Shown here is a 440-nucleotide part of an RNA from Thermobaculum terrenum, a member of the family "Bacterial large subunit ribosomal RNA".
The sequence is in the family's curated seed alignment.
Pairs were carried over by alignment from the consensus structure, which is taken from published work.
The organism belongs to Thermobaculum terrenum, within Bacteria.
[Rfam]
RNA sequence: CUCCCCGAAAUGCAUCUAGGUGCAGCCUCGGGUGUACCUUGUCGGAGGUAGGGCUCUGGAUCGGCUAGGGGGCGACAUCCGCUUACCAAACCGAACUAAACUGCGAAUGCCGACAAGCCACUGCCCGGGAGUGAGGCCGCGAGUGCUAAGAUCCGUGGCCGAGAGGGAAACAACCCAGAUCGCCAGCUAAGGUCCCCAAGUGCUGACUAAGUGGGAAAGGAUGUGGGAUCGCGUAAACAACCAGGAGGUUGGCUUAGAAGCAGCCAUCCUUUAAAGAGUGCGUAAUAGCUCACUGGUCGAAGGUGGUCCCGCGCCGACGAUGUAACGGGGCUAAGUCAGCCACCGAAGCUGCGACAGCCUAUUUGGCUGGGUAGGGGAGCGUUGCGUAGGGCUGUGAAGGCGGAGCCGAGAGGUCCGCUGGAGCCAUCGCAAGUGAGAAU
Numbered sequence: 001c002u003c004c005c006c007g008a009a010a011u012g013c014a015u016c017u018a019g020g021u022g023c024a025g026c027c028u029c030g031g032g033u034g035u036a037c038c039u040u041g042u043c044g045g046a047g048g049u050a051g052g053g054c055u056c057u058g059g060a061u062c063g064g065c066u067a068g069g070g071g072g073c074g075a076c077a078u079c080c081g082c083u084u085a086c087c088a089a090a091c092c093g094a095a096c097u098a099a100a101c102u103g104c105g106a107a108u109g110c111c112g113a114c115a116a117g118c119c120a121c122u123g124c125c126c127g128g129g130a131g132u133g134a135g136g137c138c139g140c141g142a143g144u145g146c147u148a149a150g151a152u153c154c155g156u157g158g159c160c161g162a163g164a165g166g167g168a169a170a171c172a173a174c175c176c177a178g179a180u181c182g183c184c185a186g187c188u189a190a191g192g193u194c195c196c197c198a199a200g201u202g203c204u205g206a207c208u209a210a211g212u213g214g215g216a217a218a219g220g221a222u223g224u225g226g227g228a229u230c231g232c233g234u235a236a237a238c239a240a241c242c243a244g245g246a247g248g249u250u251g252g253c254u255u256a257g258a259a260g261c262a263g264c265c266a267u268c269c270u271u272u273a274a275a276g277a278g279u280g281c282g283u284a285a286u287a288g289c290u291c292a293c294u295g296g297u298c299g300a301a302g303g304u305g306g307u308c309c310c311g312c313g314c315c316g317a318c319g320a321u322g323u324a325a326c327g328g329g330g331c332u333a334a335g336u337c338a339g340c341c342a343c344c345g346a347a348g349c350u351g352c353g354a355c356a357g358c359c360u361a362u363u364u365g366g367c368u369g370g371g372u373a374g375g376g377g378a379g380c381g382u383u384g385c386g387u388a389g390g391g392c393u394g395u396g397a398a399g400g401c402g403g404a405g406c407c408g409a410g411a412g413g414u415c416c417g418c419u420g421g422a423g424c425c426a427u428c429g430c431a432a433g434u435g436a437g438a439a440u
Stems, first nucleotide, its partner, number of pairs: 001379006011024005026131001027129007036122001038117008051104001052102002057098003061094004068087002070084005135160007143152002165176003180354004185350003191344003200341001202340006219315002223312010240297005246270003251265003271275001276291001280289002355369005380435001382432005390425003399419005405414003